Description: THF (Tetrahydrofolate) riboswitch aptamer: a 96-nucleotide RNA sequence from Faecalibacterium sp. CAG:82. Rfam 15.1 lists 747 matches to the family in 747 species. NCBI's taxonomy places the organism under Bacteria, Bacillati, Bacillota, Eubacteriales, Faecalibacterium. It scores 85 bits against the family's covariance model. A reference for the family is Ames et al. (2010), "A eubacterial riboswitch class that senses the coenzyme tetrahydrofolate", Chem Biol.
[Rfam]
Nucleotides: 096
Stems, first nucleotide, its partner, number of pairs: 001096001003094003010083010020072003026057002029055005035049002040089003044085001061069003
Number, partner (000 for none) and nucleotide at each position: 001096a002000a003094c004093a005092g006000a007000g008000u009000a010083a011082g012081g013080c014079c015078a016077u017076g018075u019074g020072c021071g022070u023000u024000a025000a026057g027056u028000g029055c030054c031053g032052c033051a034000u035049c036048a037000a038000c039000g040089g041088g042087g043000a044085g045000u046000u047000g048036u049035g050000c051033u052032g053031c054030g055029g056027a057026c058000g059000a060000a061069g062068g063067g064000c065000g066000a067063c068062c069061c070022g071021c072020g073000g074019u075018g076017c077016a078015u079014g080013g081012c082011c083010u084000g085044c086000a087042u088041c089040c090000c091000g092005c093004u094003g095000c096001u